[Rfam]
RNA sequence: AAAGGGGUAACCGAAAACCUUAUCUAUAGAGUAGGUA
Numbered sequence: 001a002a003a004g005g006g007g008u009a010a011c012c013g014a015a016a017a018c019c020u021u022a023u024c025u026a027u028a029g030a031g032u033a034g035g036u037a
Stems, first nucleotide, its partner, number of pairs: 002021004010036003

A member of the RNA family "DUF805b RNA" from Aquimarina atlantica, 37 nucleotides long. The source organism's lineage runs through Bacteria, Pseudomonadati, Bacteroidota, Flavobacteriaceae and Aquimarina. Pairs were carried over by alignment from the consensus structure, which is taken from published work.